[Rfam]
RNA sequence: ACGCGUAGGCGGGGUCGGUGCAAACCCGAACCGGCGGUGAAAGCCCGCGAACCGAUCGAGGAAUCGAUCGGCUGACCCGGUGGAACUCCGGGGCCGACGGUGACAGUCCGGAAGGGAGUCCGCGCGU
Numbered sequence: 001a002c003g004c005g006u007a008g009g010c011g012g013g014g015u016c017g018g019u020g021c022a023a024a025c026c027c028g029a030a031c032c033g034g035c036g037g038u039g040a041a042a043g044c045c046c047g048c049g050a051a052c053c054g055a056u057c058g059a060g061g062a063a064u065c066g067a068u069c070g071g072c073u074g075a076c077c078c079g080g081u082g083g084a085a086c087u088c089c090g091g092g093g094c095c096g097a098c099g100g101u102g103a104c105a106g107u108c109c110g111g112a113a114g115g116g117a118g119u120c121c122g123c124g125c126g127u
Base pairs, nucleotide, nucleotide: 003125004124005123006122008120009119010118016028017027018026030107031106032096033095034048035047036046037045043094044093052071053070076092077091078090079089080088098110099109100108
Record summary
Shown here is a 127-nucleotide RNA from a Streptomycetaceae bacterium, a member of the family "FMN riboswitch aptamer (RFN element)". It scores 91 bits against the family's covariance model. The family's consensus secondary structure is taken from published work. Lineage of the source: Bacteria > Bacillati > Actinomycetota > Kitasatosporales > Streptomycetaceae. Rfam describes the family as follows. The RFN element is a highly conserved domain that is found frequently in the 5'-untranslated regions of prokaryotic mRNAs that encode for flavin mononucleotide (FMN) biosynthesis and transport proteins.